[Rfam]
Shown here is a 323-nucleotide part of an RNA from Labeo rohita, a member of the family "Eukaryotic large subunit ribosomal RNA".
The organism belongs to Labeo, within Eukaryota.
It scores 2741 bits against the family's covariance model.

RNA sequence: GAGUCUUACGCGCGCGCGAGUCAAAGGGUGUCCUCGAGCCCCCACGGCGCAAUGAAGGUGAAGGCCGGCUUCUCGUCGGCCCAGGUGGGAUCCCCCCGCCCCGGCGGGGGGCGCACCACCGGCCCGCCCGGUCCCCCUCCCUCGGGCGGGGGCGGGUGGAGCAAGAGCGCGUGCGAAAGUACCCGAAAGAUGGUGAACUAUGCCUGGGCAGGGCGAAGCCAGGGGAAACCCUGGUGGAGGCCCGCAGCGGUCCUGACGUGCAAAUCGGUCGUCCGACCUGGGCAUAGGGGCGAAAGACUAAUCGAACCAUCUAGUAGCUGGUU
Numbered sequence: 001g002a003g004u005c006u007u008a009c010g011c012g013c014g015c016g017c018g019a020g021u022c023a024a025a026g027g028g029u030g031u032c033c034u035c036g037a038g039c040c041c042c043c044a045c046g047g048c049g050c051a052a053u054g055a056a057g058g059u060g061a062a063g064g065c066c067g068g069c070u071u072c073u074c075g076u077c078g079g080c081c082c083a084g085g086u087g088g089g090a091u092c093c094c095c096c097c098g099c100c101c102c103g104g105c106g107g108g109g110g111g112c113g114c115a116c117c118a119c120c121g122g123c124c125c126g127c128c129c130g131g132u133c134c135c136c137c138u139c140c141c142u143c144g145g146g147c148g149g150g151g152g153c154g155g156g157u158g159g160a161g162c163a164a165g166a167g168c169g170c171g172u173g174c175g176a177a178a179g180u181a182c183c184c185g186a187a188a189g190a191u192g193g194u195g196a197a198c199u200a201u202g203c204c205u206g207g208g209c210a211g212g213g214c215g216a217a218g219c220c221a222g223g224g225g226a227a228a229c230c231c232u233g234g235u236g237g238a239g240g241c242c243c244g245c246a247g248c249g250g251u252c253c254u255g256a257c258g259u260g261c262a263a264a265u266c267g268g269u270c271g272u273c274c275g276a277c278c279u280g281g282g283c284a285u286a287g288g289g290g291c292g293a294a295a296g297a298c299u300a301a302u303c304g305a306a307c308c309a310u311c312u313a314g315u316a317g318c319u320g321g322u323u
Stems, first nucleotide, its partner, number of pairs: 005179003009175009020048003026041004052059002084120005092111006122162002124159006133150002182321002185318001189311006198287011209275001211243004218235007247272004252268002255266002289299002